[Rfam]
tRNA: a 74-nucleotide RNA from Saccharomyces cerevisiae. Rfam classes the family as a transfer RNA.
RNA sequence: GGUUUCGUGGUCUAGUCGGUUAUGGCAUCUGCUUAACACGCAGAACGUCCCCAGUUCGAUCCUGGGCGAAAUCA
Numbered sequence: 001g002g003u004u005u006c007g008u009g010g011u012c013u014a015g016u017c018g019g020u021u022a023u024g025g026c027a028u029c030u031g032c033u034u035a036a037c038a039c040g041c042a043g044a045a046c047g048u049c050c051c052c053a054g055u056u057c058g059a060u061c062c063u064g065g066g067c068g069a070a071a072u073c074a
Base pairs, nucleotide, nucleotide: 001073002072003071004070005069006068007067010026011025012024028044029043030042031041032040050066051065052064053063054062